[Rfam]
RNA sequence: GCUCACGAGCGGCAGCGACAAGUACCUGGCUGGCUGUCCGGCAACCCCCGACGUGGUGGGUGCCCCAGGAGAAGAGCAGGUCACGGAUGACCCUCCGCGACAAGCGAUCGGA
Numbered sequence: 001g002c003u004c005a006c007g008a009g010c011g012g013c014a015g016c017g018a019c020a021a022g023u024a025c026c027u028g029g030c031u032g033g034c035u036g037u038c039c040g041g042c043a044a045c046c047c048c049c050g051a052c053g054u055g056g057u058g059g060g061u062g063c064c065c066c067a068g069g070a071g072a073a074g075a076g077c078a079g080g081u082c083a084c085g086g087a088u089g090a091c092c093c094u095c096c097g098c099g100a101c102a103a104g105c106g107a108u109c110g111g112a
Base pairs, nucleotide, nucleotide: 001077002076003075004074009039011038012037013036014035015034016033021031022030040064041063042062045060046059047058048056049055080101081100082099084097085096086095087094
RNA: SAM (S-adenosyl methionine) riboswitch aptamer